[Rfam]
RNA sequence: CCAAAGGCCCUUUUAAGGGCCACCCAAUUACUCAGAAAAGAGCUA
Numbered sequence: 001c002c003a004a005a006g007g008c009c010c011u012u013u014u015a016a017g018g019g020c021c022a023c024c025c026a027a028u029u030a031c032u033c034a035g036a037a038a039a040g041a042g043c044u045a
Base pairs, nucleotide, nucleotide: 006021007020008019009018010017011016

A member of the RNA family "Histone 3' UTR stem-loop" from Carassius auratus, 45 nucleotides long. It scores 42 bits against the family's covariance model. It is annotated as a cis-regulatory element. The base pairs follow the family's consensus structure, which is taken from published work. For this family Rfam cites "The sequence of the stem and flanking sequences at the 3' end of histone mRNA are critical determinants for the binding of the stem-loop binding protein" (Williams and Marzluff, Nucleic Acids Res, 1995). The mRNAs of metazoan histone genes lack a poly-A tail. 3' end processing occurs at a site between a highly conserved stem-loop (modelled by this family) and a purine rich region around 20 nts downstream (the histone downstream element, or HDE).